[Rfam]
RNA sequence: AGUUGAUGCACCCGGUGGUUUUUUCCUCCCAGUGCCACCGCAUCAGCUGUUCCCCUCUGGAGGUUUUAUUAGACCUUCAAAACUAUACGGGCCUCGGAGAAAUCCUGAGGCCCUUUUU
Numbered sequence: 001a002g003u004u005g006a007u008g009c010a011c012c013c014g015g016u017g018g019u020u021u022u023u024u025c026c027u028c029c030c031a032g033u034g035c036c037a038c039c040g041c042a043u044c045a046g047c048u049g050u051u052c053c054c055c056u057c058u059g060g061a062g063g064u065u066u067u068a069u070u071a072g073a074c075c076u077u078c079a080a081a082a083c084u085a086u087a088c089g090g091g092c093c094u095c096g097g098a099g100a101a102a103u104c105c106u107g108a109g110g111c112c113c114u115u116u117u118u
Stems, first nucleotide, its partner, number of pairs: 001048005007042003015038004058079007089113006096105003